[Rfam]
The record is a 112-nucleotide RNA from Perkinsus marinus, which matches "U5 spliceosomal RNA" in Rfam. Rfam classes the family as a spliceosomal small nuclear RNA. The literature on the family includes a 1996 paper in J Biol Chem by Hinz et al., "Domain analysis of human U5 RNA. Cap trimethylation, protein binding, and spliceosome assembly". NCBI's taxonomy places the organism under Eukaryota, Perkinsozoa, Perkinsea, Perkinsus, Perkinsus marinus.
RNA sequence: UAUCACAGCGGUCAUCUCAAAGCGAAUCAAUCUUUCGCCUUUUACUAAAGAUUGCCGUGUGGCAUGACUGCACACAUGUGAACUUACACAAUUUUUGCGGAGCGUAUGCUCC
Dot-bracket structure: ..((((..((((((((.((........((((((((...........))))))))...)).)..))))))).......)))).................(((((....)))))
Numbered sequence: 001u002a003u004c005a006c007a008g009c010g011g012u013c014a015u016c017u018c019a020a021a022g023c024g025a026a027u028c029a030a031u032c033u034u035u036c037g038c039c040u041u042u043u044a045c046u047a048a049a050g051a052u053u054g055c056c057g058u059g060u061g062g063c064a065u066g067a068c069u070g071c072a073c074a075c076a077u078g079u080g081a082a083c084u085u086a087c088a089c090a091a092u093u094u095u096u097g098c099g100g101a102g103c104g105u106a107u108g109c110u111c112c
Stems, first nucleotide, its partner, number of pairs: 003081004009070007016061001018059002028054008099112005